The family of this 177-nucleotide sequence from Fusibacter sp. 3D3 is "6S / SsrS RNA". Pairs were carried over by alignment from the consensus structure, which is taken from published work. The family's RNA type in Rfam is non-coding RNA gene. On this family, see Wassarman and Storz, Cell 2000: "6S RNA regulates E. coli RNA polymerase activity". Rfam describes the family as follows. E. coli 6S RNA was the first non coding RNA to be sequenced, but its function was unknown until recently. It consists of 184 nucleotides that fold into an extended hairpin structure with a large single-stranded internal bulge.
[Rfam]
RNA sequence: AGUGUUCUGGGGUGUUGGUCACCUUAUAAAUUCAACCACUGUUUAAUCGUAGGGAGAACGUGUUCUACUGCGUAUGACGCGCUACAAUUUUGGUAGAAGUCAGAAACAGAAGAUAGUCCACCCACCUAGUUGGGGUGUGGUGUGAGAUUUAUCGGGUGACGGCAUUCUGGGCAGUAU
Numbered sequence: 001a002g003u004g005u006u007c008u009g010g011g012g013u014g015u016u017g018g019u020c021a022c023c024u025u026a027u028a029a030a031u032u033c034a035a036c037c038a039c040u041g042u043u044u045a046a047u048c049g050u051a052g053g054g055a056g057a058a059c060g061u062g063u064u065c066u067a068c069u070g071c072g073u074a075u076g077a078c079g080c081g082c083u084a085c086a087a088u089u090u091u092g093g094u095a096g097a098a099g100u101c102a103g104a105a106a107c108a109g110a111a112g113a114u115a116g117u118c119c120a121c122c123c124a125c126c127u128a129g130u131u132g133g134g135g136u137g138u139g140g141u142g143u144g145a146g147a148u149u150u151a152u153c154g155g156g157u158g159a160c161g162g163c164a165u166u167c168u169g170g171g172c173a174g175u176a177u
Stems, first nucleotide, its partner, number of pairs: 002175002006171010018160002032145003035141003052123003056119001058117002063113001065112002068109003077100002082096004